[Rfam]
RNA sequence: ACACGAGAAGGGAGGUGGUUCCGGAAAUGAUCAAGAACCGGACGCGUGAGGUGGCUGCGGGCUAGCGGCCCGUCGUUUCACCGAAGUGCAGCGCCGGACCCGCGCAUGCUGCAGAUGCGCAGCCGGCCCAAAUCCCAGCAGUCACCCGGCCCGCGGGCUGCCGGUUCGUCCGACCGGCCCUUUGCGCCACCGAGCGCGGAGGAACCAGUCCGUGGGCCGUCUGCA
Numbered sequence: 001a002c003a004c005g006a007g008a009a010g011g012g013a014g015g016u017g018g019u020u021c022c023g024g025a026a027a028u029g030a031u032c033a034a035g036a037a038c039c040g041g042a043c044g045c046g047u048g049a050g051g052u053g054g055c056u057g058c059g060g061g062c063u064a065g066c067g068g069c070c071c072g073u074c075g076u077u078u079c080a081c082c083g084a085a086g087u088g089c090a091g092c093g094c095c096g097g098a099c100c101c102g103c104g105c106a107u108g109c110u111g112c113a114g115a116u117g118c119g120c121a122g123c124c125g126g127c128c129c130a131a132a133u134c135c136c137a138g139c140a141g142u143c144a145c146c147c148g149g150c151c152c153g154c155g156g157g158c159u160g161c162c163g164g165u166u167c168g169u170c171c172g173a174c175c176g177g178c179c180c181u182u183u184g185c186g187c188c189a190c191c192g193a194g195c196g197c198g199g200a201g202g203a204a205c206c207a208g209u210c211c212g213u214g215g216g217c218c219g220u221c222u223g224c225a
Stems, first nucleotide, its partner, number of pairs: 015058005060128004065123002068120002071117001073115002147219013160178006
About this RNA: A member of the RNA family "Actinobacteria sRNA Ms_IGR-5" from Streptomyces gilvosporeus, 225 nucleotides long. The match comes from Rfam's covariance-model search (88 bits). NCBI's taxonomy places the organism under Bacteria, Bacillati, Actinomycetes, Kitasatosporales, Streptomyces. The pairing is the family consensus, mapped onto this sequence. Rfam classes the family as a small RNA.